Rfam assigns this 78-nucleotide sequence from Ignelater luminosus to the family "mir-980 microRNA precursor family". It scores 63 bits against the family's covariance model. Gene Ontology terms of the family: RISC complex and miRNA-mediated post-transcriptional gene silencing. The family's consensus secondary structure was predicted with RNAalifold.

Nucleotides: 078
Stems, first nucleotide, its partner, number of pairs: 004075002007072003012067004017062003023056002031051005
Number, partner (000 for none) and nucleotide at each position: 001000u002000u003000u004075g005074c006000a007072a008071u009070g010000a011000g012067g013066c014065u015064c016000g017062u018061c019060a020000u021000u022000g023056g024055g025000u026000a027000g028000c029000a030000u031051c032050u033049a034048g035047c036000u037000u038000u039000u040000a041000u042000u043000u044000a045000a046000u047035g048034c049033u050032a051031g052000c053000u054000g055024c056023c057000u058000u059000u060019u061018g062017a063000a064015g065014g066013g067012c068000a069000a070009c071008a072007u073000g074005g075004c076000a077000a078000u